[Rfam]
RNA sequence: CCGGUCGCCGAUAGGGGCCGGCCCGCCGGACUGUGUCACACACACGCCGGCGGGUGACGCUUGUAUCCAUGUUGCUCAAUGGAGGAUGUGGCUAUGAGAA
Number, nucleotide and partner (000 for none) at each position: 001c021002c020003g019004g018005u017006c016007g000008c015009c014010g000011a000012u000013a000014g009015g008016g006017g005018c004019c003020g002021g001022c000023c000024c000025g000026c000027c000028g000029g000030a000031c000032u000033g000034u059035g058036u057037c056038a055039c054040a000041c052042a000043c050044a000045c000046g000047c000048c000049g000050g043051c000052g041053g000054g039055u038056g037057a036058c035059g034060c098061u097062u096063g095064u094065a093066u000067c091068c090069a089070u088071g087072u086073u085074g000075c084076u083077c082078a000079a000080u000081g000082g077083a076084g075085g073086a072087u071088g070089u069090g068091g067092c000093u065094a064095u063096g062097a061098g060099a000100a000
RNA: Repression of heat shock gene expression (ROSE) element
Organism: bacterium YEK0313